About this RNA
A member of the RNA family "U1 spliceosomal RNA" from Callithrix jacchus, 158 nucleotides long. Rfam describes the family as follows. U1 is a small nuclear RNA (snRNA) component of the spliceosome (involved in pre-mRNA splicing). Its 5' end forms complementary base pairs with the 5' splice junction, thus defining the 5' donor site of an intron. There are significant differences in sequence and secondary structure between metazoan and yeast U1 snRNAs, the latter being much longer (568 nucleotides as compared to 164 nucleotides in human). Nevertheless, secondary structure predictions suggest that all U1 snRNAs share a 'common core' consisting of helices I, II, the proximal region of III, and IV. This family does not contain the larger yeast sequences. Its family is annotated with pre-mRNA 5'-splice site binding, U1 snRNP and mRNA 5'-splice site recognition in the Gene Ontology.

RNA sequence: UUACUUACCUGGCAGGGGAGAUAUGGUCACUGAGGUGGUUUUCCUAGGAUAAAGUUCAUUCAUUGCACUCUGGAUGUGCUGACCCCUGUAAUUUCCCCAACUGUGGGAAAUUCAACUGCAUAAUUUGUGAUAGGGAGACUGUGUGGCACUUUCCCCUG
Numbered sequence: 001u002u003a004c005u006u007a008c009c010u011g012g013c014a015g016g017g018g019a020g021a022u023a024u025g026g027u028c029a030c031u032g033a034g035g036u037g038g039u040u041u042u043c044c045u046a047g048g049a050u051a052a053a054g055u056u057c058a059u060u061c062a063u064u065g066c067a068c069u070c071u072g073g074a075u076g077u078g079c080u081g082a083c084c085c086c087u088g089u090a091a092u093u094u095c096c097c098c099a100a101c102u103g104u105g106g107g108a109a110a111u112u113c114a115a116c117u118g119c120a121u122a123a124u125u126u127g128u129g130a131u132a133g134g135g136a137g138a139c140u141g142u143g144u145g146g147c148a149c150u151u152u153c154c155c156c157u158g
Stems, first nucleotide, its partner, number of pairs: 012119004016045006023036002046087003053080003057076005089114001091112001092110003096106002134156002137153002141149003